Rfam assigns this 105-nucleotide RNA from Papio anubis to the family "Mitochondrial DNA control region secondary structure A". A reference for the family is Pereira et al. (2008), "Evidence for variable selective pressures at a large secondary structure of the human mitochondrial DNA control region", Mol Biol Evol.
RNA sequence: GUAUUUUAUGUUGUACGAACCCCACAGUAUAAUUCUAGUACUGACCUAUCUUUAAUGCCACUAUGUAAUUCGUGCAUUACUGCUAGCCAGCAUGUAUAAUAUAUA
Dot-bracket structure: ....(.(((((.(...(.(....(.(((...))).).((..(((.......)))..))....(((((.....)))))...).)...)..))))).).........
Numbered sequence: 001g002u003a004u005u006u007u008a009u010g011u012u013g014u015a016c017g018a019a020c021c022c023c024a025c026a027g028u029a030u031a032a033u034u035c036u037a038g039u040a041c042u043g044a045c046c047u048a049u050c051u052u053u054a055a056u057g058c059c060a061c062u063a064u065g066u067a068a069u070u071c072g073u074g075c076a077u078u079a080c081u082g083c084u085a086g087c088c089a090g091c092a093u094g095u096a097u098a099a100u101a102u103a104u105a
Stems, first nucleotide, its partner, number of pairs: 005096001007094005013087001017083001019081001024036001026034003038058002042054003063077005

It is annotated as an antisense RNA.